[Rfam]
RNA: Bacterial RNase P class A
RNA sequence: GGAGUCGGCCAGACAGUCGCUUCCGUCCUGGUGACGGGGGAGGAAAGUCCGGGCUCCAUAGGGCAGGGUGCCAGGUAACGCCUGGGGGGCGAGAGUCCACGGAAAGUGCCGCAGAAAAGAUACCGCCGACCCCGUCCUCGGACGGGAGGUAAGGGUGAAAUGGUGCGGUAAGAGCGCACCGCGCUGGUGGCAACAUCAGUGGCAGGGUAAACCCCACCCGGAGCAAGACCAAAUAGGGGAACUCGCGGCUUCGACCGCAGCGCGCGGCCCGCGCGUGUUCCCGGGUAGGUCGCUAGAGGCGUGCGGCGACGCACGUCCCAGAUGAAUGACUGUCCACGACAGAACCCGGCUUAUCGGCCGACUCCCUUC
Numbered sequence: 001g002g003a004g005u006c007g008g009c010c011a012g013a014c015a016g017u018c019g020c021u022u023c024c025g026u027c028c029u030g031g032u033g034a035c036g037g038g039g040g041a042g043g044a045a046a047g048u049c050c051g052g053g054c055u056c057c058a059u060a061g062g063g064c065a066g067g068g069u070g071c072c073a074g075g076u077a078a079c080g081c082c083u084g085g086g087g088g089g090c091g092a093g094a095g096u097c098c099a100c101g102g103a104a105a106g107u108g109c110c111g112c113a114g115a116a117a118a119g120a121u122a123c124c125g126c127c128g129a130c131c132c133c134g135u136c137c138u139c140g141g142a143c144g145g146g147a148g149g150u151a152a153g154g155g156u157g158a159a160a161u162g163g164u165g166c167g168g169u170a171a172g173a174g175c176g177c178a179c180c181g182c183g184c185u186g187g188u189g190g191c192a193a194c195a196u197c198a199g200u201g202g203c204a205g206g207g208u209a210a211a212c213c214c215c216a217c218c219c220g221g222a223g224c225a226a227g228a229c230c231a232a233a234u235a236g237g238g239g240a241a242c243u244c245g246c247g248g249c250u251u252c253g254a255c256c257g258c259a260g261c262g263c264g265c266g267g268c269c270c271g272c273g274c275g276u277g278u279u280c281c282c283g284g285g286u287a288g289g290u291c292g293c294u295a296g297a298g299g300c301g302u303g304c305g306g307c308g309a310c311g312c313a314c315g316u317c318c319c320a321g322a323u324g325a326a327u328g329a330c331u332g333u334c335c336a337c338g339a340c341a342g343a344a345c346c347c348g349g350c351u352u353a354u355c356g357g358c359c360g361a362c363u364c365c366c367u368u369c
Base pairs, nucleotide, nucleotide: 001365002364003363004362005361006360007359008358009357010356011354012334013333014332015331016330017329018328020040021039022038023037024036025035026034027033045352046351047350049349050348051347052346053345054223055222056221057220061270062269063268064267066219067218068217069216070215071085072084073083074082075081086100087098088097089096090095101214102213106212107211108208109207110206123154124153125150126149127148131146132145133144134143135142136141162180163179164178165177166176167175181203182201183200184199185198186197187196188195189194227291228290229289230288237282238281239280240279241278242277261275262274263273264272265271298317299316300315301314302313303312304311305310